Rfam assigns this 157-nucleotide RNA sequence from Phytohabitans rumicis to the family "c-di-AMP riboswitch aptamer (ydaO/yuaA leader)". It scores 78 bits against the family's covariance model.
RNA sequence: UGGUGGCUGCCGCCGAAUCGCCGCAUGCUCGGUCUCGCAUCGAGCCUUGGGUGAGCCGGGGAACCACCGAACUACUGGGGUGAAUCCGCGCGAGCGGUAGGGGUACUUCCGUCCCGAACCCGUCAGCUAACUCGGUAGGCGGCUGACUGGAAGGACG
Numbered sequence: 001u002g003g004u005g006g007c008u009g010c011c012g013c014c015g016a017a018u019c020g021c022c023g024c025a026u027g028c029u030c031g032g033u034c035u036c037g038c039a040u041c042g043a044g045c046c047u048u049g050g051g052u053g054a055g056c057c058g059g060g061g062a063a064c065c066a067c068c069g070a071a072c073u074a075c076u077g078g079g080g081u082g083a084a085u086c087c088g089c090g091c092g093a094g095c096g097g098u099a100g101g102g103g104u105a106c107u108u109c110c111g112u113c114c115c116g117a118a119c120c121c122g123u124c125a126g127c128u129a130a131c132u133c134g135g136u137a138g139g140c141g142g143c144u145g146a147c148u149g150g151a152a153g154g155a156c157g
Base pairs, nucleotide, nucleotide: 011141012140013139014138018054019053020052021051022050055136056135057134058133059132060131065077066076078121079120080119086097087096088095089094100115101114102113103112